[Rfam]
RNA sequence: CCCACCUCUUACGAGGUGGGCUAUUUUCUUGCGUGCCUUCGGGACU
Numbered sequence: 001c002c003c004a005c006c007u008c009u010u011a012c013g014a015g016g017u018g019g020g021c022u023a024u025u026u027u028c029u030u031g032c033g034u035g036c037c038u039u040c041g042g043g044a045c046u
Base pairs, nucleotide, nucleotide: 001020002019003018004017005016006015007014008013033045034044036042037041

Record summary
Rfam assigns this 46-nucleotide sequence from Candidatus Korobacter versatilis to the family "Acido-Lenti-1 RNA". Rfam 15.1 lists 2,607 matches to the family in 171 species. NCBI's taxonomy places the organism under Bacteria, Acidobacteriota, Terriglobia, Candidatus Korobacteraceae, Candidatus Korobacter versatilis. The family's consensus secondary structure is taken from published work.